[Rfam]
RNA: Group II catalytic intron D1-D4-5
RNA sequence: GAGAACUGAUAGUUUGAAAAGUCAAAUGAUGAGGUAACGCUUUGAAGGGCUUUCUCUAAUCUACGACUGGCAUUUAAUGAAUAAGCAUUGAAGUGUCAGAUAGCUCGUUGAAGUCGGCUGAGAGUACACCCUAACGGAUUAUGCUGAGGAAAUGUGAACCAGAGGUGGUCAAGUGUAUGAUAGGUCGGGAGUCUAUAAA
Numbered sequence: 001g002a003g004a005a006c007u008g009a010u011a012g013u014u015u016g017a018a019a020a021g022u023c024a025a026a027u028g029a030u031g032a033g034g035u036a037a038c039g040c041u042u043u044g045a046a047g048g049g050c051u052u053u054c055u056c057u058a059a060u061c062u063a064c065g066a067c068u069g070g071c072a073u074u075u076a077a078u079g080a081a082u083a084a085g086c087a088u089u090g091a092a093g094u095g096u097c098a099g100a101u102a103g104c105u106c107g108u109u110g111a112a113g114u115c116g117g118c119u120g121a122g123a124g125u126a127c128a129c130c131c132u133a134a135c136g137g138a139u140u141a142u143g144c145u146g147a148g149g150a151a152a153u154g155u156g157a158a159c160c161a162g163a164g165g166u167g168g169u170c171a172a173g174u175g176u177a178u179g180a181u182a183g184g185u186c187g188g189g190a191g192u193c194u195a196u197a198a199a
Base pairs, nucleotide, nucleotide: 018053019052020051021050022049023048031043032042033041034040054191055190056189057188063108064107065106066105067099068098069097070096071095073092074091075090076089077088078087079086115187116186117185118184119183124178125177126176127175128174129173130149131148132147136145137144153172155171156170158169159168160167161166